[Rfam]
RNA sequence: CAAGAUUCUCGGGGUAAGGUGAAAUUCCUGACCGGCGGUAAAGUUCCAUGGGAACAAGCCCGCGACUCGCAGCUUUGGCAGCAAGGCUGUGACUGAUCUGGUGCAAGUCCAGAGCCGACGGUAAAGUCCGGAUGGGAGAGGAUCAAC
Numbered sequence: 001c002a003a004g005a006u007u008c009u010c011g012g013g014g015u016a017a018g019g020u021g022a023a024a025u026u027c028c029u030g031a032c033c034g035g036c037g038g039u040a041a042a043g044u045u046c047c048a049u050g051g052g053a054a055c056a057a058g059c060c061c062g063c064g065a066c067u068c069g070c071a072g073c074u075u076u077g078g079c080a081g082c083a084a085g086g087c088u089g090u091g092a093c094u095g096a097u098c099u100g101g102u103g104c105a106a107g108u109c110c111a112g113a114g115c116c117g118a119c120g121g122u123a124a125a126g127u128c129c130g131g132a133u134g135g136g137a138g139a140g141g142a143u144c145a146a147c
Stems, first nucleotide, its partner, number of pairs: 004144007017029003031127002033117002035063004058115002067092005097113005119130003